Shown here is a 91-nucleotide RNA sequence from Carex littledalei, a member of the family "Small nucleolar RNA Z43". A reference for the family is Chen et al. (2003), "The high diversity of snoRNAs in plants: identification and comparative study of 120 snoRNA genes from Oryza sativa", Nucleic Acids Res.
RNA sequence: GAACGAUGAUGAUUGAUAUCAGGUCUCGUUCGUCGUAAUGGCUACUUGCCUUGACGACCAUACUAUAUAUCACCACCCAUAUUCUGAGUUC
Numbered sequence: 001g002a003a004c005g006a007u008g009a010u011g012a013u014u015g016a017u018a019u020c021a022g023g024u025c026u027c028g029u030u031c032g033u034c035g036u037a038a039u040g041g042c043u044a045c046u047u048g049c050c051u052u053g054a055c056g057a058c059c060a061u062a063c064u065a066u067a068u069a070u071c072a073c074c075a076c077c078c079a080u081a082u083u084c085u086g087a088g089u090u091c
Stems, first nucleotide, its partner, number of pairs: 001091004044051001